Rfam assigns this 106-nucleotide sequence from Sutcliffiella cohnii to the family "SAM riboswitch aptamer (S box leader)". Taxonomically the source falls in Sutcliffiella (Bacteria, Bacillati, Bacilli, Bacillaceae).

[Rfam]
RNA sequence: UUCUUAUUAAGAGUGGUGGAGGGAACAGACCCGAAGAAGCCCGGCAACCUUCAAACGAUUUGAAAGGUGCUAAAUUCUGCAAACAUUAUUGUUUGAAAGAUAAGGA
Numbered sequence: 001u002u003c004u005u006a007u008u009a010a011g012a013g014u015g016g017u018g019g020a021g022g023g024a025a026c027a028g029a030c031c032c033g034a035a036g037a038a039g040c041c042c043g044g045c046a047a048c049c050u051u052c053a054a055a056c057g058a059u060u061u062g063a064a065a066g067g068u069g070c071u072a073a074a075u076u077c078u079g080c081a082a083a084c085a086u087u088a089u090u091g092u093u094u095g096a097a098a099g100a101u102a103a104g105g106a
Stems, first nucleotide, its partner, number of pairs: 001106008013042001015041003021032003026079004043071004048067002050064004075098001080095006